[Rfam]
RNA: Bacterial RNase P class A
Organism: Methylophilales bacterium HTCC2181
RNA sequence: CAAGUUGACUAGACAGUCGCUAUAUAUGCAAAUAUAUAGAGGAAAGUCCGGGCUCCAUAGAGCAAAGUGAUGGCUAACAGCCAUACGCCGUGAGGCGAGGAAUAGGGCCACAGAGACGAGCGUAUUAAGUUACGGUGAAACGCGGUAACCUCCACUUGGAGCAAGGCCAAAUAGGGUAGCAUUGGCACGGCUCGUGUCGCUACCGGGUAGGCUGCUUGAGUGCAUAAGUAAUUGUGCAACUAGAUGAAUGACUGUCCACGACAGAACCCGGCUUAUCGGUCAACUUAACCU
Numbered sequence: 001c002a003a004g005u006u007g008a009c010u011a012g013a014c015a016g017u018c019g020c021u022a023u024a025u026a027u028g029c030a031a032a033u034a035u036a037u038a039g040a041g042g043a044a045a046g047u048c049c050g051g052g053c054u055c056c057a058u059a060g061a062g063c064a065a066a067g068u069g070a071u072g073g074c075u076a077a078c079a080g081c082c083a084u085a086c087g088c089c090g091u092g093a094g095g096c097g098a099g100g101a102a103u104a105g106g107g108c109c110a111c112a113g114a115g116a117c118g119a120g121c122g123u124a125u126u127a128a129g130u131u132a133c134g135g136u137g138a139a140a141c142g143c144g145g146u147a148a149c150c151u152c153c154a155c156u157u158g159g160a161g162c163a164a165g166g167c168c169a170a171a172u173a174g175g176g177u178a179g180c181a182u183u184g185g186c187a188c189g190g191c192u193c194g195u196g197u198c199g200c201u202a203c204c205g206g207g208u209a210g211g212c213u214g215c216u217u218g219a220g221u222g223c224a225u226a227a228g229u230a231a232u233u234g235u236g237c238a239a240c241u242a243g244a245u246g247a248a249u250g251a252c253u254g255u256c257c258a259c260g261a262c263a264g265a266a267c268c269c270g271g272c273u274u275a276u277c278g279g280u281c282a283a284c285u286u287a288a289c290c291u
Stems, first nucleotide, its partner, number of pairs: 002286009011276001012256007020039008044274003048271005053161004060193004065157005070084005086097004100152002105150002107146003121134004165213004175204006184198005221238007